Rfam assigns this 55-nucleotide RNA to the family "S4-Clostridia ribosomal protein leader".

[Rfam]
RNA sequence: GAAAGGGUGCGAAUACCGACGCACCUGGGUGGCGCGAAGCGCAACCCCUAUUAAA
Dot-bracket structure: ....(((((((........)))))))((((.((((...)))).))))........
Clan: Ribosomal Protein S4 Leader clan.